[Rfam]
RNA sequence: GUUGGGAAAUGAUGUGAAGUUACCCAAGAUAUCAAAGGCACUAGCUAUGCUGAAUGUCUUUGUUUUGCACGUCAGUCUGAUCCCAUA
Numbered sequence: 001g002u003u004g005g006g007a008a009a010u011g012a013u014g015u016g017a018a019g020u021u022a023c024c025c026a027a028g029a030u031a032u033c034a035a036a037g038g039c040a041c042u043a044g045c046u047a048u049g050c051u052g053a054a055u056g057u058c059u060u061u062g063u064u065u066u067g068c069a070c071g072u073c074a075g076u077c078u079g080a081u082c083c084c085a086u087a
Stems, first nucleotide, its partner, number of pairs: 003085005
The record is an 87-nucleotide RNA from Jatropha curcas, which matches "Small nucleolar RNA Z122" in Rfam. A reference for the family is Qu et al. (1999), "Seven novel methylation guide small nucleolar RNAs are processed from a common polycistronic transcript by Rat1p and RNase III in yeast", Mol Cell Biol. It is annotated as a C/D-box small nucleolar RNA. Its family is annotated with RNA processing and nucleolus in the Gene Ontology.